Mitochondrial DNA control region secondary structure A: a 103-nucleotide RNA from Chlorocebus sabaeus.
Rfam 15.1 lists 795 matches to the family in 62 species.
The family's consensus secondary structure is taken from published work.
The organism belongs to Chlorocebus, within Eukaryota.
A reference for the family is Pereira et al. (2008), "Evidence for variable selective pressures at a large secondary structure of the human mitochondrial DNA control region", Mol Biol Evol.
The match comes from Rfam's covariance-model search (53 bits).

RNA sequence: GCAUAUGGAAGGAUGCCAAGAUUUAAAUGUAACUUAAGUACUAAUUUAUUUUAACAUACUCUUAUGUAAGUCGUGCAUUACUGCUAGCCAACAUGAUUAUAUA
Numbered sequence: 001g002c003a004u005a006u007g008g009a010a011g012g013a014u015g016c017c018a019a020g021a022u023u024u025a026a027a028u029g030u031a032a033c034u035u036a037a038g039u040a041c042u043a044a045u046u047u048a049u050u051u052u053a054a055c056a057u058a059c060u061c062u063u064a065u066g067u068a069a070g071u072c073g074u075g076c077a078u079u080a081c082u083g084c085u086a087g088c089c090a091a092c093a094u095g096a097u098u099a100u101a102u103a
Stems, first nucleotide, its partner, number of pairs: 004095004011089002015084002019082002023037004028032001038059002042054001044052001064078005